A member of the RNA family "L2-Alphaproteobacteria ribosomal protein leader" from Fertoeibacter niger, 61 nucleotides long. It scores 46 bits against the family's covariance model. Rfam classes the family as a cis-regulatory leader.
[Rfam]
RNA sequence: GGGGAUCUUCGGAGCCCUUCACCGGACCUCUCAUGGUCCUCAAGCUGACGGAAGACAGAAA
Number, nucleotide and partner (000 for none) at each position: 001g018002g017003g016004g015005a000006u014007c000008u012009u000010c000011g000012g008013a000014g006015c004016c003017c002018u001019u000020c000021a000022c000023c000024g039025g038026a037027c036028c035029u000030c000031u000032c000033a000034u000035g028036g027037u026038c025039c024040u000041c000042a000043a000044g000045c000046u000047g000048a000049c000050g000051g000052a000053a000054g000055a000056c000057a000058g000059a000060a000061a000
The family's consensus secondary structure is taken from published work.